SAM riboswitch aptamer (S box leader): a 163-nucleotide sequence from Chloroflexales bacterium ZM16-3. Its family is annotated with regulation of gene expression in the Gene Ontology.
RNA sequence: UGCUCAUCCAGAGGGGUGGAGGGAUCGGCCCAUUGAAGCCCCGGCAACCACUGAGCAAUUGUAGAUUGCAGAUUGCAGAUUGCAGCCCGGCUGCCAAUCUACAAUCUACAAUCUGCAAUUCAGAACGGUGCUAACUCCGUCAGCGCAAGCUGGAAGAUGAGGU
Dot-bracket structure: ..((((((....(((((...(((..[[[)))......)))))((((.((.(((((...............................................................)))))...))))))...(]]].((((....))))..)))))))..
It scores 72 bits against the family's covariance model.